[Rfam]
RNA: PyrR binding site
Organism: Paenibacillaceae bacterium GAS479
RNA sequence: AGUACCUUUAACUCAGUCCAGAGAGGCUGGCAAGGUAGCGUGAUUAUAAGCCGUCGUCCGGAAGUAGCUUUAAACCAGCACGGAGUGUGAACCAUGUCCGCUGGCAGCGCCUUGUUGCGCUUGCCGCCGUACAUGCUUGCAUCCGCGACCGCUGGGCGGCUUCCGCGCGGCUUAUACCUUCCCCUAUCUCCUUGCUGAGCAACUCGGCAGGGAGAUUUUUUU
Numbered sequence: 001a002g003u004a005c006c007u008u009u010a011a012c013u014c015a016g017u018c019c020a021g022a023g024a025g026g027c028u029g030g031c032a033a034g035g036u037a038g039c040g041u042g043a044u045u046a047u048a049a050g051c052c053g054u055c056g057u058c059c060g061g062a063a064g065u066a067g068c069u070u071u072a073a074a075c076c077a078g079c080a081c082g083g084a085g086u087g088u089g090a091a092c093c094a095u096g097u098c099c100g101c102u103g104g105c106a107g108c109g110c111c112u113u114g115u116u117g118c119g120c121u122u123g124c125c126g127c128c129g130u131a132c133a134u135g136c137u138u139g140c141a142u143c144c145g146c147g148a149c150c151g152c153u154g155g156g157c158g159g160c161u162u163c164c165g166c167g168c169g170g171c172u173u174a175u176a177c178c179u180u181c182c183c184c185u186a187u188c189u190c191c192u193u194g195c196u197g198a199g200c201a202a203c204u205c206g207g208c209a210g211g212g213a214g215a216u217u218u219u220u221u222u
Base pairs, nucleotide, nucleotide: 003037004036005035006034007033008032013030014029015028016027017026018025045176046175047174048173049172050171051170052169053168186216187215188214189213190212191211192210193209194208195207196206197205198204